This 164-nucleotide sequence from Neobittarella massiliensis belongs to the Rfam family "Ribosomal protein L10 leader". It scores 56 bits against the family's covariance model. It is annotated as a cis-regulatory leader. Pairs were carried over by alignment from the consensus structure, which was predicted with CMfinder. On this family, see Iben and Draper, Biochemistry 2008: "Specific interactions of the L10(L12)4 ribosomal protein complex with mRNA, rRNA, and L11". The organism belongs to Neobittarella (ex Bilen et al. 2018), within Bacteria. Rfam describes the family as follows. This family is a putative r-protein leader autoregulatory structure found in B. subtilis and other low-GC Gram-positive bacteria.
[Rfam]
RNA sequence: GAAUAUAUUUGCUGUCAUUCUAAGACAGCAGGUGCACCCGUGCGUAAUAGGGAGAGUAUUCCCUGCCUGCCGAGGAUGAGGUCUUACAGAAUACAUCGCUUUGCCAUUGUAUUUUCGAGCCCUUCUUCGCGCACACGCCGAAGAAGGGCUCUUCCUUUUUCCAA
Number, nucleotide and partner (000 for none) at each position: 001g000002a000003a000004u000005a000006u000007a000008u000009u000010u000011g000012c000013u000014g000015u000016c000017a000018u000019u000020c000021u000022a000023a000024g000025a000026c000027a000028g070029c069030a068031g067032g066033u065034g043035c042036a041037c000038c000039c000040g000041u036042g035043c034044g000045u000046a000047a000048u000049a000050g000051g000052g000053a000054g000055a000056g000057u000058a000059u000060u000061c000062c000063c000064u000065g033066c032067c031068u030069g029070c028071c000072g000073a000074g000075g000076a000077u000078g000079a000080g000081g000082u000083c000084u000085u000086a000087c000088a000089g000090a000091a000092u000093a000094c000095a000096u000097c000098g000099c000100u000101u000102u000103g000104c000105c000106a000107u000108u000109g000110u000111a000112u000113u000114u000115u000116c000117g000118a000119g149120c148121c147122c146123u145124u144125c143126u142127u141128c140129g000130c000131g000132c000133a000134c000135a000136c000137g000138c000139c000140g128141a127142a126143g125144a124145a123146g122147g121148g120149c119150u000151c000152u000153u000154c000155c000156u000157u000158u000159u000160u000161c000162c000163a000164a000